This 78-nucleotide RNA from Alligator sinensis belongs to the Rfam family "Mammalian CPEB3 ribozyme". Pairs were carried over by alignment from the consensus structure, which is taken from published work. The match comes from Rfam's covariance-model search (39 bits).
RNA sequence: AGAGGCCAAGUUUCAGGCCAUAGCGAAAGUGCUUAUGGUGCGGCCCUGUCAUAUUCCAACGAAUCUGCAAAUUCUGCU
Numbered sequence: 001a002g003a004g005g006c007c008a009a010g011u012u013u014c015a016g017g018c019c020a021u022a023g024c025g026a027a028a029g030u031g032c033u034u035a036u037g038g039u040g041c042g043g044c045c046c047u048g049u050c051a052u053a054u055u056c057c058a059a060c061g062a063a064u065c066u067g068c069a070a071a072u073u074c075u076g077c078u
Stems, first nucleotide, its partner, number of pairs: 016045004022078004027073002029041003050067002053064004